[Rfam]
RNA sequence: GAAUCAGCCCUACAUCAAGUUGCGAGUGAGGGAGAUUCAGCCUUGAUUC
Numbered sequence: 001g002a003a004u005c006a007g008c009c010c011u012a013c014a015u016c017a018a019g020u021u022g023c024g025a026g027u028g029a030g031g032g033a034g035a036u037u038c039a040g041c042c043u044u045g046a047u048u049c
Base pairs, nucleotide, nucleotide: 001037002036004034008032009031011030012027013026015046016045017044018043019042
The record is a 49-nucleotide sequence from Polerovirus CPPV1, which matches "Exoribonuclease-resistant RNA (xrRNA) plant-infecting virus (class 3)" in Rfam. The sequence is in the family's curated seed alignment. The base pairs follow the family's consensus structure, which is taken from published work. The family's RNA type in Rfam is cis-regulatory element. Gene Ontology term of the family: viral RNA genome replication. About the family: Exoribonuclease-resistant RNA (xrRNA) plant-infecting virus (class 3) is a ncRNA that was reported in Plant viruses.